[Rfam]
RNA sequence: AUUUAAGUUUUCUAGGAUUCCGCAGUUGUAACUGGCAGGUCCGGGAGAAACCACACGGUUACUGUGUACACGGAGGGAUAAAAGCCCAGGAGAU
Numbered sequence: 001a002u003u004u005a006a007g008u009u010u011u012c013u014a015g016g017a018u019u020c021c022g023c024a025g026u027u028g029u030a031a032c033u034g035g036c037a038g039g040u041c042c043g044g045g046a047g048a049a050a051c052c053a054c055a056c057g058g059u060u061a062c063u064g065u066g067u068a069c070a071c072g073g074a075g076g077g078a079u080a081a082a083a084g085c086c087c088a089g090g091a092g093a094u
Stems, first nucleotide, its partner, number of pairs: 007052001009050004015042002020039002022036001023034004053067006069089001071092001075087003
Dot-bracket structure: ......(.((((..((...(((((((....)))).).)).))....)))).)((((((...)))))).(.[...(((.......))).)..]..

Overview:
Shown here is a 94-nucleotide RNA sequence from Allolucifera butyrica, a member of the family "Guanidine-I riboswitch aptamer". This family represents a conserved RNA structure found upstream of the ykkC and yxkD genes in Bacillus subtilis and related genes in other bacteria. Its family is annotated with regulation of gene expression in the Gene Ontology. The family has 100 seed sequences and 1,509 matches in Rfam 15.1. The source organism's lineage runs through Bacteria, Bacillati, Bacillota, Veillonellales and Allolucifera. The match comes from Rfam's covariance-model search (72 bits).